[Rfam]
RNA sequence: UUGCCUUAAACUAAUGAGUAAGGAAAACAAAGCGAGCGGUGAGAGCCGGUCGCAGCGCUAACAGUAAAACAUAGAAAGUGGCGCAAGAAUUUAUGGAAGGGAAAUAGGCUGGCCGAGUCGUUGACGCUGCUUACUUUUGCAGAACUCGACUCGCGCGGGCCUCCCA
Numbered sequence: 001u002u003g004c005c006u007u008a009a010a011c012u013a014a015u016g017a018g019u020a021a022g023g024a025a026a027a028c029a030a031a032g033c034g035a036g037c038g039g040u041g042a043g044a045g046c047c048g049g050u051c052g053c054a055g056c057g058c059u060a061a062c063a064g065u066a067a068a069a070c071a072u073a074g075a076a077a078g079u080g081g082c083g084c085a086a087g088a089a090u091u092u093a094u095g096g097a098a099g100g101g102a103a104a105u106a107g108g109c110u111g112g113c114c115g116a117g118u119c120g121u122u123g124a125c126g127c128u129g130c131u132u133a134c135u136u137u138u139g140c141a142g143a144a145c146u147c148g149a150c151u152c153g154c155g156c157g158g159g160c161c162u163c164c165c166a
Stems, first nucleotide, its partner, number of pairs: 004023005032053004037048003055084005099165004107161004112156002115152002118149003127142004

Shown here is a 166-nucleotide RNA from Raphanus sativus, a member of the family "U12 minor spliceosomal RNA". The literature on the family includes a 2002 paper in Mol Cell by Otake et al., "The divergent U12-type spliceosome is required for pre-mRNA splicing and is essential for development in Drosophila". It scores 88 bits against the family's covariance model. By type it is a spliceosomal small nuclear RNA. The organism belongs to Raphanus, within Eukaryota. The pairing is the family consensus, mapped onto this sequence. Rfam links the family to the GO terms mRNA branch site recognition, U12 snRNP and pre-mRNA branch point binding. Rfam 15.1 lists 2,106 matches to the family in 1,170 species.